[Rfam]
Nucleotides: 230
Stems, first nucleotide, its partner, number of pairs: 005087013020042004026036003046053002056068004090228002093225001097218006106194011117182001119151004126143006155179003159176005196206003
Number, partner (000 for none) and nucleotide at each position: 001000g002000a003000g004000u005087u006086a007085c008084g009083a010082u011081u012080u013079c014078a015077u016076g017075c018000g019000a020042g021041g022040u023039u024000a025000a026036g027035u028034u029000g030000a031000a032000a033000a034028g035027a036026c037000g038000g039023a040022g041021c042020c043000g044000c045000a046053g047052c048000g049000a050000a051000a052047g053046c054000g055000a056068g057067u058066c059065u060000g061000a062000a063000u064000a065059g066058g067057g068056c069000g070000a071000a072000u073000a074000a075017g076016u077015a078014u079013g080012a081011g082010g083009u084008c085007g086006u087005a088000g089000a090228c091227c092000c093225g094000a095000a096000a097218c098217c099216a100215a101214g102213u103000g104000a105000c106194c107193u108192a109191c110190c111189c112188a113187u114186g115185u116184c117182c118000a119151g120150g121149u122148u123000g124000a125000a126143g127142g128141u129140g130139c131138g132000g133000u134000a135000a136000u137000a138131c139130g140129c141128a142127c143126u144000g145000g146000a147000g148122g149121a150120c151119c152000g153000a154000a155179c156178c157177c158000a159176c160175g161174c162173a163172c164000g165000u166000u167000g168000a169000a170000a171000a172163g173162u174161g175160c176159g177157g178156g179155g180000a181000u182117g183000a184116g185115g186114u187113g188112u189111g190110g191109g192108u193107a194106g195000c196206g197205g198204a199000g200000a201000a202000a203000u204198u205197c206196c207000a208000a209000u210000c211000g212000a213102a214101c215100u216099u217098g218097g219000a220000g221000a222000u223000a224000g225093c226000u227091g228090g229000u230000u

The family of this 230-nucleotide part of an RNA from Trichococcus palustris is "Bacterial large subunit ribosomal RNA".
Lineage of the source: Bacteria > Bacillota > Bacilli > Lactobacillales > Trichococcus.
A search with the family's covariance model found it, with a score of 2976 bits.
The base pairs follow the family's consensus structure, which is taken from published work.
Rfam 15.1 lists 51,934 matches to the family in 10,816 species.